[Rfam]
RNA sequence: GGGUGAAAUGAUGCUUUACCAUCUUUCGGGACUGACAAUGCAAUGGAGAUGUCUUUUUAACUUUACUGAUCACUA
Numbered sequence: 001g002g003g004u005g006a007a008a009u010g011a012u013g014c015u016u017u018a019c020c021a022u023c024u025u026u027c028g029g030g031a032c033u034g035a036c037a038a039u040g041c042a043a044u045g046g047a048g049a050u051g052u053c054u055u056u057u058u059a060a061c062u063u064u065a066c067u068g069a070u071c072a073c074u075a
Stems, first nucleotide, its partner, number of pairs: 002074005

A member of the RNA family "Small nucleolar RNA SNORD2" from Notothenia coriiceps, 75 nucleotides long. Lineage of the source: Eukaryota > Actinopterygii > Eupercaria > Notothenioidei > Notothenia. For this family Rfam cites "Identification of a novel box C/D snoRNA from mouse nucleolar cDNA library" (Zhou et al., Gene, 2004). Its family is annotated with RNA processing and nucleolus in the Gene Ontology. It is annotated as a C/D-box small nucleolar RNA.